[Rfam]
RNA sequence: AGCACUUGUGUGUGUUUAACUUGUGAACAAAUAUUUAUAGACAGGUACAAGCAUAAAUCCUCUUUUGCAAUCCAUAACUCAUUGUUCAUUAUGAGUUUGGUACAUGCAAUCAGGGAUAUU
Numbered sequence: 001a002g003c004a005c006u007u008g009u010g011u012g013u014g015u016u017u018a019a020c021u022u023g024u025g026a027a028c029a030a031a032u033a034u035u036u037a038u039a040g041a042c043a044g045g046u047a048c049a050a051g052c053a054u055a056a057a058u059c060c061u062c063u064u065u066u067g068c069a070a071u072c073c074a075u076a077a078c079u080c081a082u083u084g085u086u087c088a089u090u091a092u093g094a095g096u097u098u099g100g101u102a103c104a105u106g107c108a109a110u111c112a113g114g115g116a117u118a119u120u
Stems, first nucleotide, its partner, number of pairs: 002048001004046006011039001014028002020025001057117005065109003073099002076097007
This 120-nucleotide RNA from Spermophilus dauricus belongs to the Rfam family "Small nucleolar RNA SNORA40".
Taxonomically the source falls in Spermophilus (Eukaryota, Craniata, Teleostomi, Sciuridae).
Rfam's curators write: The snoRNA ACA 40 belongs to the H/ACA family of snoRNAs and guides the pseudouridylation of 28S rRNA subunit at position U4565. NB This family has a high threshold value to exclude a large number of closely related sequences that do not appear to have conserved H and ACA boxes, and may be pseudogenes.
A search with the family's covariance model found it, with a score of 86 bits.
The family's RNA type in Rfam is H/ACA-box small nucleolar RNA.
The base pairs follow the family's consensus structure, which was predicted with RNAalifold.
Rfam links the family to the GO terms nucleolus and RNA processing.